[Rfam]
RNA sequence: AGCUUUGCACAGUGGCAGUAUCAUAGCCAGUGAGGUUUAUUUGAGGUGGGAUUAUUGCUAAUUGAAAAUUUUUUCAAUACCCCACCAUGACGACUGGAAAUAUAGUAGGCAUUGGUAAUUUUUGGAAGUCUCUACAGGGA
Numbered sequence: 001a002g003c004u005u006u007g008c009a010c011a012g013u014g015g016c017a018g019u020a021u022c023a024u025a026g027c028c029a030g031u032g033a034g035g036u037u038u039a040u041u042u043g044a045g046g047u048g049g050g051a052u053u054a055u056u057g058c059u060a061a062u063u064g065a066a067a068a069u070u071u072u073u074u075c076a077a078u079a080c081c082c083c084a085c086c087a088u089g090a091c092g093a094c095u096g097g098a099a100a101u102a103u104a105g106u107a108g109g110c111a112u113u114g115g116u117a118a119u120u121u122u123u124g125g126a127a128g129u130c131u132c133u134a135c136a137g138g139g140a
Base pairs, nucleotide, nucleotide: 020052021051022050024048026047027046028045034042035041084116085115086114087112088111089110091108093106094105095104096103129140130139131138132137

This 140-nucleotide RNA sequence from Sapajus apella belongs to the Rfam family "U4 spliceosomal RNA". The family's RNA type in Rfam is spliceosomal small nuclear RNA. Its Rfam clan is "U4 clan". A search with the family's covariance model found it, with a score of 102 bits. About the family: U4 small nuclear RNA (U4 snRNA) is a component of the major U2-dependent spliceosome. Lineage of the source: Eukaryota > Deuterostomia > Theria > Eutheria > Sapajus. Its family is annotated with spliceosomal tri-snRNP complex assembly and U4 snRNP in the Gene Ontology. The family's consensus secondary structure is taken from published work.